RNA sequence: UUUUUAUAGCGAAGAAGGGAGAGAACAGGCUCAAUGAACUUCUGGCAACCAGUCUCCACCAAAGACAAGGUGCUCAAGCCUGCCAAGUUUAGUUUGGAACUAUAAAAU
Numbered sequence: 001u002u003u004u005u006a007u008a009g010c011g012a013a014g015a016a017g018g019g020a021g022a023g024a025a026c027a028g029g030c031u032c033a034a035u036g037a038a039c040u041u042c043u044g045g046c047a048a049c050c051a052g053u054c055u056c057c058a059c060c061a062a063a064g065a066c067a068a069g070g071u072g073c074u075c076a077a078g079c080c081u082g083c084c085a086a087g088u089u090u091a092g093u094u095u096g097g098a099a100c101u102a103u104a105a106a107a108u
Base pairs, nucleotide, nucleotide: 002107003106004105005104006103007102008101013043014042015041016040017039021032022031023030026082027081028080029079044074045073046072047071049070050069052066053065054064055063078100083097084096085095086094087093088092

Rfam assigns this 108-nucleotide RNA from Ohtaekwangia koreensis to the family "SAM riboswitch aptamer (S box leader)". The source organism's lineage runs through Bacteria, Pseudomonadati, Cytophagia, Cytophagales and Ohtaekwangia. It scores 75 bits against the family's covariance model. About the family: The SAM riboswitch is found upstream of a number of genes which code for proteins involved in methionine or cysteine biosynthesis in Gram-positive bacteria.